[Rfam]
RNA sequence: UAAUUAAAUCAAUUAAACCUUAGUAUAAUCAUCGGAGAAUGGCCGGUGAGACCUACCCACACCUAAGCUGUGGACUACUAAGGAAUGUAUUUAACGU
Numbered sequence: 001u002a003a004u005u006a007a008a009u010c011a012a013u014u015a016a017a018c019c020u021u022a023g024u025a026u027a028a029u030c031a032u033c034g035g036a037g038a039a040u041g042g043c044c045g046g047u048g049a050g051a052c053c054u055a056c057c058c059a060c061a062c063c064u065a066a067g068c069u070g071u072g073g074a075c076u077a078c079u080a081a082g083g084a085a086u087g088u089a090u091u092u093a094a095c096g097u
Stems, first nucleotide, its partner, number of pairs: 018083008029049007057073005063067001
Purine riboswitch aptamer: a 97-nucleotide RNA from Weissella kandleri.